[Rfam]
RNA sequence: GAAGACCCUGUUGAGCUUGACUCUAGUCUGGCUUUGUGAGAUGAGUUAGGAGGUGUAGCAUAAGUGGGAGCUUUUUUCUUAAUUGGAAAAAGCGCCGGUGAAAUACCACUACUCCUGAUCUUGUUUUACUUACUCCGUUAGGCCGAAAUAAGAAACGGAGUGAAGAACACUUUUUGUUUCUUUUUCUUUUUGCGUUAAAGCGAAUUACUUCGCUGAUUCGGUGCGGAGGACAGUGCCAGGUGGGGAGUUUGGCUGGGGCGGCACAUCUGUUAAAAGAUAACGCAGGUGUCCUAAGAUGAGCUCAGUGAGAACAGAAAUCUCAUGUAGAGUAAAAGGGCAAAAGCUCAUUUGAUUUUGAUUUUCAGUACGAAUACAAACUGUGAAAGCAUGGCCUAUCGAUCCUUUACGACUUCAAAGUAUGAAGCUAGAGGUGUCAGAAAAGUUACCACAGGGAUAACUGGCUUGUGGCAGCCAAGCGUUCAUAGCGACGUUGCUUUUUGAUCCUUCGAUGUCGGCUCUUCCUAUCCUUGUGAAGCAGAAUUCACAAAGCGUUGGAUUGUUCACCCACUAACAGGGAACGUGAGCUGGGUUUA
Numbered sequence: 001g002a003a004g005a006c007c008c009u010g011u012u013g014a015g016c017u018u019g020a021c022u023c024u025a026g027u028c029u030g031g032c033u034u035u036g037u038g039a040g041a042u043g044a045g046u047u048a049g050g051a052g053g054u055g056u057a058g059c060a061u062a063a064g065u066g067g068g069a070g071c072u073u074u075u076u077u078c079u080u081a082a083u084u085g086g087a088a089a090a091a092g093c094g095c096c097g098g099u100g101a102a103a104u105a106c107c108a109c110u111a112c113u114c115c116u117g118a119u120c121u122u123g124u125u126u127u128a129c130u131u132a133c134u135c136c137g138u139u140a141g142g143c144c145g146a147a148a149u150a151a152g153a154a155a156c157g158g159a160g161u162g163a164a165g166a167a168c169a170c171u172u173u174u175u176g177u178u179u180c181u182u183u184u185u186c187u188u189u190u191u192g193c194g195u196u197a198a199a200g201c202g203a204a205u206u207a208c209u210u211c212g213c214u215g216a217u218u219c220g221g222u223g224c225g226g227a228g229g230a231c232a233g234u235g236c237c238a239g240g241u242g243g244g245g246a247g248u249u250u251g252g253c254u255g256g257g258g259c260g261g262c263a264c265a266u267c268u269g270u271u272a273a274a275a276g277a278u279a280a281c282g283c284a285g286g287u288g289u290c291c292u293a294a295g296a297u298g299a300g301c302u303c304a305g306u307g308a309g310a311a312c313a314g315a316a317a318u319c320u321c322a323u324g325u326a327g328a329g330u331a332a333a334a335g336g337g338c339a340a341a342a343g344c345u346c347a348u349u350u351g352a353u354u355u356u357g358a359u360u361u362u363c364a365g366u367a368c369g370a371a372u373a374c375a376a377a378c379u380g381u382g383a384a385a386g387c388a389u390g391g392c393c394u395a396u397c398g399a400u401c402c403u404u405u406a407c408g409a410c411u412u413c414a415a416a417g418u419a420u421g422a423a424g425c426u427a428g429a430g431g432u433g434u435c436a437g438a439a440a441a442g443u444u445a446c447c448a449c450a451g452g453g454a455u456a457a458c459u460g461g462c463u464u465g466u467g468g469c470a471g472c473c474a475a476g477c478g479u480u481c482a483u484a485g486c487g488a489c490g491u492u493g494c495u496u497u498u499u500g501a502u503c504c505u506u507c508g509a510u511g512u513c514g515g516c517u518c519u520u521c522c523u524a525u526c527c528u529u530g531u532g533a534a535g536c537a538g539a540a541u542u543c544a545c546a547a548a549g550c551g552u553u554g555g556a557u558u559g560u561u562c563a564c565c566c567a568c569u570a571a572c573a574g575g576g577a578a579c580g581u582g583a584g585c586u587g588g589g590u591u592u593a
Stems, first nucleotide, its partner, number of pairs: 007452004012448002014444005020248004027240006036129010046118007063110005070093009133228005143221004150182011199214005251264001252262003265287006290391002296348006302328002305323006329338002353377003358372004379388003402430005410424004461502001463500001465499001467495006476486002513588001514586004518580001519577005526551001529546006553567003557563001
Rfam assigns this 593-nucleotide part of an RNA from Hemiselmis andersenii to the family "Eukaryotic large subunit ribosomal RNA".